About this RNA
The family of this 123-nucleotide RNA sequence is "drum RNA". Firmicutes, Bacteroidetes (1 example), Proteobacteria (2 examples), Spirochaetes (2 examples).

RNA sequence: AGUGUAUGAAGUACGUAGAGUGUCGGCAAGCUCUAUAUAUGGACACUUACGAAGGGUUUUGGUUGUUUUGUAUCUCAAGCCGACUUUGAGUAUUUGAGGAAAAUACGACAGAAAAAACAAACC
Numbered sequence: 001a002g003u004g005u006a007u008g009a010a011g012u013a014c015g016u017a018g019a020g021u022g023u024c025g026g027c028a029a030g031c032u033c034u035a036u037a038u039a040u041g042g043a044c045a046c047u048u049a050c051g052a053a054g055g056g057u058u059u060u061g062g063u064u065g066u067u068u069u070g071u072a073u074c075u076c077a078a079g080c081c082g083a084c085u086u087u088g089a090g091u092a093u094u095u096g097a098g099g100a101a102a103a104u105a106c107g108a109c110a111g112a113a114a115a116a117a118c119a120a121a122c123c
Stems, first nucleotide, its partner, number of pairs: 001047004011040003015036007023083004061123003090106006